The family of this 83-nucleotide RNA sequence from Solanum tuberosum is "MIR8024 microRNA precursor family". A search with the family's covariance model found it, with a score of 78 bits. The family's consensus secondary structure was predicted with RNAalifold.
[Rfam]
RNA sequence: UUGAAGAAUUUGAAGACUUUAACUUGCAUACUUAAAGUAUUUGAAGACUUCUUACAUACUUGAAGAAUUUGAAGACUUCAACU
Numbered sequence: 001u002u003g004a005a006g007a008a009u010u011u012g013a014a015g016a017c018u019u020u021a022a023c024u025u026g027c028a029u030a031c032u033u034a035a036a037g038u039a040u041u042u043g044a045a046g047a048c049u050u051c052u053u054a055c056a057u058a059c060u061u062g063a064a065g066a067a068u069u070u071g072a073a074g075a076c077u078u079c080a081a082c083u
Stems, first nucleotide, its partner, number of pairs: 001081006009073006017065005025056002028053001035050003